[Rfam]
RNA sequence: GGACUGGCUUUAGCUAAGGGGUUCCUUUGGUUCAAGACCCCUGGUGCCCUCCAGUUCUUAA
Numbered sequence: 001g002g003a004c005u006g007g008c009u010u011u012a013g014c015u016a017a018g019g020g021g022u023u024c025c026u027u028u029g030g031u032u033c034a035a036g037a038c039c040c041c042u043g044g045u046g047c048c049c050u051c052c053a054g055u056u057c058u059u060a061a
Base pairs, nucleotide, nucleotide: 002056003055004054005053006052007051013045014044015043016042018041019040020039021038026036027035028034029033
Vault RNA: a 61-nucleotide sequence from Myotis lucifugus. The family's RNA type in Rfam is non-coding RNA gene. The match comes from Rfam's covariance-model search (45 bits). The family has 73 seed sequences and 2,873 matches in Rfam 15.1.